Shown here is a 130-nucleotide RNA sequence from Mesocricetus auratus, a member of the family "Small nucleolar RNA SNORA30/SNORA37 family". Pairs were carried over by alignment from the consensus structure, which was predicted with RNAfold. The literature on the family includes a 2001 paper in EMBO J by Huttenhofer et al., "RNomics: an experimental approach that identifies 201 candidates for novel, small, non-messenger RNAs in mouse". Rfam's curators write: The members of this family belong to the H/ACA class of snoRNAs that guide the sites of modification of uridines to pseudouridines. The family's RNA type in Rfam is H/ACA-box small nucleolar RNA. Lineage of the source: Eukaryota > Opisthokonta > Metazoa > Boreoeutheria > Mesocricetus.
[Rfam]
RNA sequence: CUAGAACUCUUCACAGGUCUUCCCUUAAUUAGUGGGGUCAGGAUUUGGUAGCUGGUGCUGAUAGAAAACCCUUGAUUACAUCAUUGUCCUGAUACUGUACCAUCGACAACUGUUACUCAAGGGAACAGUG
Numbered sequence: 001c002u003a004g005a006a007c008u009c010u011u012c013a014c015a016g017g018u019c020u021u022c023c024c025u026u027a028a029u030u031a032g033u034g035g036g037g038u039c040a041g042g043a044u045u046u047g048g049u050a051g052c053u054g055g056u057g058c059u060g061a062u063a064g065a066a067a068a069c070c071c072u073u074g075a076u077u078a079c080a081u082c083a084u085u086g087u088c089c090u091g092a093u094a095c096u097g098u099a100c101c102a103u104c105g106a107c108a109a110c111u112g113u114u115a116c117u118c119a120a121g122g123g124a125a126c127a128g129u130g
Stems, first nucleotide, its partner, number of pairs: 003059002006056003014047003018043004023037004070123002072120004077115002080113002084109005090102002